[Rfam]
RNA sequence: GGGGAUACACUUAGAACCCCAGGAGCGGCGUGUUAAUAGUCGUGCUUUUGGCCAGGCGCGAUGGUUAGUGAAUC
Numbered sequence: 001g002g003g004g005a006u007a008c009a010c011u012u013a014g015a016a017c018c019c020c021a022g023g024a025g026c027g028g029c030g031u032g033u034u035a036a037u038a039g040u041c042g043u044g045c046u047u048u049u050g051g052c053c054a055g056g057c058g059c060g061a062u063g064g065u066u067a068g069u070g071a072a073u074c
Stems, first nucleotide, its partner, number of pairs: 001020004033068005039062009
This 74-nucleotide RNA sequence belongs to the Rfam family "L13-Bacteroidia ribosomal protein leader". It is one of the family's seed sequences. The family's RNA type in Rfam is cis-regulatory leader. The base pairs follow the family's consensus structure, which is taken from published work.